[Rfam]
RNA sequence: GACAGGAAAGGGGAGACAGCCCUGUGUCUCCUACGUUCAGAAGAACACUGAGGUAGAGCAAAAAAUCAAUGGCCGAGAUAUCAUUUCGGCCGUCAUUUAUUUUUAUUGGAGAUUCGAUUGUUGCUCGUUUACUU
Numbered sequence: 001g002a003c004a005g006g007a008a009a010g011g012g013g014a015g016a017c018a019g020c021c022c023u024g025u026g027u028c029u030c031c032u033a034c035g036u037u038c039a040g041a042a043g044a045a046c047a048c049u050g051a052g053g054u055a056g057a058g059c060a061a062a063a064a065a066u067c068a069a070u071g072g073c074c075g076a077g078a079u080a081u082c083a084u085u086u087c088g089g090c091c092g093u094c095a096u097u098u099a100u101u102u103u104u105a106u107u108g109g110a111g112a113u114u115c116g117a118u119u120g121u122u123g124c125u126c127g128u129u130u131a132c133u134u
Stems, first nucleotide, its partner, number of pairs: 006038003010034001013030006071130002074127004080118003089113001091111001093109003097105001
The family of this 134-nucleotide RNA from Carya illinoinensis is "Small nucleolar RNA snoR111". Lineage of the source: Eukaryota > Streptophyta > Spermatophyta > fabids > Carya. The family has 6 seed sequences and 533 matches in Rfam 15.1. Pairs were carried over by alignment from the consensus structure, which was predicted with WAR. By type it is an H/ACA-box small nucleolar RNA.